[Rfam]
RNA sequence: AAUAAUUAAGGGCAAACUAAUCGAAAGAUUAGGACGCAAAGCCACGGGUCUAUGGCUUCUAGAGGCUAAGAUAGCCGGGUUGCAGAA
Dot-bracket structure: ...........((...((((((....))))))...))..((((.((((((....((((....))))...)))..)))))))......
RNA: c-di-GMP-I riboswitch aptamer
Organism: Domibacillus epiphyticus